Record summary
Shown here is a 185-nucleotide sequence from Candidatus Phycosocius bacilliformis, a member of the family "Manganese Mn2+ riboswitch aptamer (yybP-ykoY)".
RNA sequence: AUUCGGGUCAUCUGGGGAGUAGCCAGUCGUCAUGCGUGACGAGCCCCCGCGUCAACAUACUCGGUCGAGAGACCGUGGCGCGUGGAAAGCGGGAAGACCGCUUAGGCGAGACCAAUGGCACCGAAUCUCCGCUCAGGGUUGGGCGGCGAGAUUGGUGUCCGUUGGUUGUUUUAUGCCGCCCAACC
Numbered sequence: 001a002u003u004c005g006g007g008u009c010a011u012c013u014g015g016g017g018a019g020u021a022g023c024c025a026g027u028c029g030u031c032a033u034g035c036g037u038g039a040c041g042a043g044c045c046c047c048c049g050c051g052u053c054a055a056c057a058u059a060c061u062c063g064g065u066c067g068a069g070a071g072a073c074c075g076u077g078g079c080g081c082g083u084g085g086a087a088a089g090c091g092g093g094a095a096g097a098c099c100g101c102u103u104a105g106g107c108g109a110g111a112c113c114a115a116u117g118g119c120a121c122c123g124a125a126u127c128u129c130c131g132c133u134c135a136g137g138g139u140u141g142g143g144c145g146g147c148g149a150g151a152u153u154g155g156u157g158u159c160c161g162u163u164g165g166u167u168g169u170u171u172u173a174u175g176c177c178g179c180c181c182a183a184c185c
Base pairs, nucleotide, nucleotide: 027042028041029040045085046084048082049081050080051079052078053077054076062075063074064073065072066071091185092184
A reference for the family is Argaman et al. (2001), "Novel small RNA-encoding genes in the intergenic regions of Escherichia coli", Curr Biol.
From the family's description: This RNA was originally discovered in E. coli during a large scale screen and was named SraF. The family was later found to exist upstream of related families of protein genes in many bacteria, including the the yybP and ykoK genes in B. subtilis.